[Rfam]
RNA sequence: UAAUACCUGGGGUGUGCGACAACCUUACCAAUUUUGAACCUACACUUUGACCUACGGGGUCCAAGCAUUUUGUGAUUGGAUGUCGAGCCUCUUAUAAAGUGGAUGGCAGAAAACACAUUGAGGACACCCACCUAGCCCUGCUAGGCGUCAUAAUGUAAGAACGACAUUUUGGGAUUAUA
Numbered sequence: 001u002a003a004u005a006c007c008u009g010g011g012g013u014g015u016g017c018g019a020c021a022a023c024c025u026u027a028c029c030a031a032u033u034u035u036g037a038a039c040c041u042a043c044a045c046u047u048u049g050a051c052c053u054a055c056g057g058g059g060u061c062c063a064a065g066c067a068u069u070u071u072g073u074g075a076u077u078g079g080a081u082g083u084c085g086a087g088c089c090u091c092u093u094a095u096a097a098a099g100u101g102g103a104u105g106g107c108a109g110a111a112a113a114c115a116c117a118u119u120g121a122g123g124a125c126a127c128c129c130a131c132c133u134a135g136c137c138c139u140g141c142u143a144g145g146c147g148u149c150a151u152a153a154u155g156u157a158a159g160a161a162c163g164a165c166a167u168u169u170u171g172g173g174a175u176u177a178u179a
Base pairs, nucleotide, nucleotide: 003176006173007172008171009170010169011168012167013166014165015164017163018162031154032153033152035150036149037148039145040144056129057128058127060124061123062122065119067118071117072116073115074114076113077112083106084105088102089101091099092098